[Rfam]
RNA sequence: UUUCCCAUUGGACUACCACAUUUUCUCCUAAUAAUUUUGGUGGCUAUGCUAGUGGGUCUAUGUUUGGUGUCUAUGCUAUAGAUUAAAAUUGCCAGGAUCUGAAGAGGAAGGAUGUAUGUGUGGUCUCCUCCCACGUGAAAGGCCGAAUGGAAAUAU
Numbered sequence: 001u002u003u004c005c006c007a008u009u010g011g012a013c014u015a016c017c018a019c020a021u022u023u024u025c026u027c028c029u030a031a032u033a034a035u036u037u038u039g040g041u042g043g044c045u046a047u048g049c050u051a052g053u054g055g056g057u058c059u060a061u062g063u064u065u066g067g068u069g070u071c072u073a074u075g076c077u078a079u080a081g082a083u084u085a086a087a088a089u090u091g092c093c094a095g096g097a098u099c100u101g102a103a104g105a106g107g108a109a110g111g112a113u114g115u116a117u118g119u120g121u122g123g124u125c126u127c128c129u130c131c132c133a134c135g136u137g138a139a140a141g142g143c144c145g146a147a148u149g150g151a152a153a154u155a156u
Stems, first nucleotide, its partner, number of pairs: 004056004016043004091143003110131003
RNA: Small nucleolar RNA SNORA29